[Rfam]
RNA sequence: GCGGAGCUGCCCGGUGCGUCAGGCAACUUUAUCCCUGGGGCCAAUAAGCAUCCUCCGGGAGCUGGCUCUGGCCGGGCCUUGGUCCGGUUACCUGGUGCCCACCUGCUAACGCAGGCCUUAGGAGGAUAAGACGCCAACGGCCAUGGUGGCUCCGCA
Numbered sequence: 001g002c003g004g005a006g007c008u009g010c011c012c013g014g015u016g017c018g019u020c021a022g023g024c025a026a027c028u029u030u031a032u033c034c035c036u037g038g039g040g041c042c043a044a045u046a047a048g049c050a051u052c053c054u055c056c057g058g059g060a061g062c063u064g065g066c067u068c069u070g071g072c073c074g075g076g077c078c079u080u081g082g083u084c085c086g087g088u089u090a091c092c093u094g095g096u097g098c099c100c101a102c103c104u105g106c107u108a109a110c111g112c113a114g115g116c117c118u119u120a121g122g123a124g125g126a127u128a129a130g131a132c133g134c135c136a137a138c139g140g141c142c143a144u145g146g147u148g149g150c151u152c153c154g155c156a
Base pairs, nucleotide, nucleotide: 002154003153004152005151006150007149008148009147010146011145013142014141015140017139018138019137032126033125034124035121037119038118039117040116041115042114057100058099059098061096062095063094064093065092070089071088072087073086074085075084076083
RNA: 6S / SsrS RNA